[Rfam]
RNA sequence: UCUUCAUUUCACACACUCUCUCAUCAGUCAGAGAGGCAAGUGAGUGUGUGAAAUGAAGAUA
Numbered sequence: 001u002c003u004u005c006a007u008u009u010c011a012c013a014c015a016c017u018c019u020c021u022c023a024u025c026a027g028u029c030a031g032a033g034a035g036g037c038a039a040g041u042g043a044g045u046g047u048g049u050g051a052a053a054u055g056a057a058g059a060u061a
Stems, first nucleotide, its partner, number of pairs: 001059007010050001012048006020040002
Dot-bracket structure: (((((((..(.((((((..((.................))..)))))).)..)))))))..
RNA: mir-8364 microRNA precursor family